[Rfam]
Nucleotides: 098
Stems, first nucleotide, its partner, number of pairs: 018084008029047001031045004056074006
Number, partner (000 for none) and nucleotide at each position: 001000c002000a003000c004000a005000g006000u007000a008000a009000a010000g011000a012000u013000a014000a015000g016000a017000u018084u019083a020082c021081u022080u023079a024078u025077a026000u027000a028000a029047u030000u031045g032044u033043g034042g035000a036000a037000u038000a039000u040000g041000g042034c043033c044032a045031c046000c047029a048000g049000u050000u051000u052000c053000u054000a055000c056074c057073u058072a059071g060070a061069a062000c063000c064000g065000u066000a067000a068000a069061u070060u071059c072058u073057a074056g075000a076000c077025u078024a079023u080022a081021a082020g083019u084018a085000a086000g087000c088000g089000u090000c091000g092000g093000c094000a095000u096000u097000a098000g

Rfam assigns this 98-nucleotide RNA sequence from Ligilactobacillus agilis to the family "Purine riboswitch aptamer". Riboswitches are metabolite binding domains within certain messenger RNAs that serve as precision sensors for their corresponding targets. The source organism's lineage runs through Bacteria, Bacillati, Bacillota, Lactobacillales and Ligilactobacillus agilis.